This 126-nucleotide RNA sequence from Buttiauxella agrestis belongs to the Rfam family "Pseudoknot of the regulatory region of the repBA gene".
Rfam links the family to the GO term translation.

RNA sequence: AACCCCCCGAAAUCUGCAAAGCAACUUGGCGGAAGCAGCAGAUAUCAGGGGGUCCAAAAGCAGGCGCUGGCCUGAGAUGGAUUAUAACGCAUGCAAAACAGAAGACAACCCCUGCCCGCCAUAAGU
Numbered sequence: 001a002a003c004c005c006c007c008c009g010a011a012a013u014c015u016g017c018a019a020a021g022c023a024a025c026u027u028g029g030c031g032g033a034a035g036c037a038g039c040a041g042a043u044a045u046c047a048g049g050g051g052g053u054c055c056a057a058a059a060g061c062a063g064g065c066g067c068u069g070g071c072c073u074g075a076g077a078u079g080g081a082u083u084a085u086a087a088c089g090c091a092u093g094c095a096a097a098a099c100a101g102a103a104g105a106c107a108a109c110c111c112c113u114g115c116c117c118g119c120c121a122u123a124a125g126u
Stems, first nucleotide, its partner, number of pairs: 002053006009046002013042005021036002027121006

By type it is a cis-regulatory element. The base pairs follow the family's consensus structure, which is taken from published work. A reference for the family is Athanasopoulos et al. (1995), "The replication of an IncL/M plasmid is subject to antisense control", J Bacteriol.